[Rfam]
RNA sequence: AUGUAGUGUGACAUGCCCGUUUGGGUUUUACUCUGAUUGUUGAGAUAUUAUUAUUUAGUUGAUUUUGGGAAACGGGGUGUUACCAUUGG
Numbered sequence: 001a002u003g004u005a006g007u008g009u010g011a012c013a014u015g016c017c018c019g020u021u022u023g024g025g026u027u028u029u030a031c032u033c034u035g036a037u038u039g040u041u042g043a044g045a046u047a048u049u050a051u052u053a054u055u056u057a058g059u060u061g062a063u064u065u066u067g068g069g070a071a072a073c074g075g076g077g078u079g080u081u082a083c084c085a086u087u088g089g
Base pairs, nucleotide, nucleotide: 004088005087006086007085008083009082010081011080012079013078014077016076017075018074019073020072021071

Source information:
A member of the RNA family "MIR2617 microRNA precursor family" from Medicago truncatula, 89 nucleotides long. The family's consensus secondary structure was predicted with RNAalifold. Lineage of the source: Eukaryota > Spermatophyta > Gunneridae > rosids > Medicago. The match comes from Rfam's covariance-model search (54 bits).